Rfam assigns this 130-nucleotide RNA from Brassica napus to the family "MIR9555 microRNA precursor family". Gene Ontology terms of the family: miRNA-mediated post-transcriptional gene silencing and RISC complex.
[Rfam]
RNA sequence: UUAUAUAUGUGUAUGCAAUUGCGGGGUUUUAAGCUUUACGGAAAACCCAAUCGAAAGUUUCUUAUUUAAGGAACUUUCGGUUGGAUUUUCCGUAAAGCUUAGAACCCUGCAAUCACAUACGCAUAUAUAA
Numbered sequence: 001u002u003a004u005a006u007a008u009g010u011g012u013a014u015g016c017a018a019u020u021g022c023g024g025g026g027u028u029u030u031a032a033g034c035u036u037u038a039c040g041g042a043a044a045a046c047c048c049a050a051u052c053g054a055a056a057g058u059u060u061c062u063u064a065u066u067u068a069a070g071g072a073a074c075u076u077u078c079g080g081u082u083g084g085a086u087u088u089u090c091c092g093u094a095a096a097g098c099u100u101a102g103a104a105c106c107c108u109g110c111a112a113u114c115a116c117a118u119a120c121g122c123a124u125a126u127a128u129a130a
Stems, first nucleotide, its partner, number of pairs: 001130015018113008027104015070089004075084002